[Rfam]
RNA sequence: UCCUGACAGGCGCAUUGGGCGUCUGACAUAACCCACGACAGGAGAAUGACAUG
Numbered sequence: 001u002c003c004u005g006a007c008a009g010g011c012g013c014a015u016u017g018g019g020c021g022u023c024u025g026a027c028a029u030a031a032c033c034c035a036c037g038a039c040a041g042g043a044g045a046a047u048g049a050c051a052u053g
Stems, first nucleotide, its partner, number of pairs: 002042004007025005

The family of this 53-nucleotide sequence is "Mu-gpT-DE RNA". The sequence is in the family's curated seed alignment.